[Rfam]
RNA: Group II catalytic intron D1-D4-6
Nucleotides: 215
Stems, first nucleotide, its partner, number of pairs: 010036005019029003023182003038087002042084004046079002048074005054069001056067004108209001109207001111206006128200006134159003139154002142151001164194005169188005
Number, partner (000 for none) and nucleotide at each position: 001000a002000g003000a004000a005000u006000c007000c008000c009000g010036u011035c012034c013033a014032g015000u016000u017000u018000a019029g020028c021027u022000u023182g024181a025180c026000c027021a028020g029019c030000a031000a032014c033013u034012g035011g036010a037000a038087g039086c040000g041000a042084g043083u044082g045081u046079u047078g048074c049073g050072u051071g052070g053000u054069a055000c056067u057066g058065a059064g060000g061000u062000a063000a064059c065058u066057c067056a068000c069054u070052c071051c072050a073049c074048g075000a076000a077000g078047c079046g080000u081045a082044c083043a084042c085000a086039g087038c088000g089000a090000a091000u092000c093000c094000g095000a096000a097000a098000g099000c100000c101000a102000u103000g104000c105000u106000a107000u108209u109207g110000a111206g112205c113204u114203u115202c116201g117000a118000a119000a120000g121000g122000c123000c124000u125000u126000u127000c128200g129199u130198g131197g132196g133195a134159g135158c136157c137000u138000u139154u140153g141000c142151u143000u144000u145000u146000u147000g148000c149000a150000u151142a152000c153140c154139a155000a156000g157136g158135g159134c160000c161000a162000c163000g164194c165193u166192g167191c168190u169188g170187c171186g172185u173184c174000g175000u176000a177000a178000u179000g180025g181024u182023u183000u184173g185172a186171c187170g188169c189000a190168a191167g192166c193165a194164g195133u196132c197131c198130u199129g200128c201116c202115g203114g204113a205112g206111u207109c208000g209108g210000u211000u212000u213000g214000g215000a